[Rfam]
This 80-nucleotide sequence from Megasphaera geminata belongs to the Rfam family "ZMP/ZTP riboswitch aptamer (pfl RNA motif)". The family's consensus secondary structure is taken from published work. The family has 185 seed sequences and 3,295 matches in Rfam 15.1. The match comes from Rfam's covariance-model search (60 bits). Lineage of the source: Bacteria > Bacillota > Veillonellaceae > Megasphaera > Megasphaera geminata.
RNA sequence: AAAGAGUCAUGUAACUGGCGGAAAGUGGGGAUACCCACGGGGAGCAUGACGUAUGACAGCCGACCGUCUGGGCAGUUGCG
Numbered sequence: 001a002a003a004g005a006g007u008c009a010u011g012u013a014a015c016u017g018g019c020g021g022a023a024a025g026u027g028g029g030g031a032u033a034c035c036c037a038c039g040g041g042g043a044g045c046a047u048g049a050c051g052u053a054u055g056a057c058a059g060c061c062g063a064c065c066g067u068c069u070g071g072g073c074a075g076u077u078g079c080g
Stems, first nucleotide, its partner, number of pairs: 004052001006050007015041002017068005025038004057075001059073003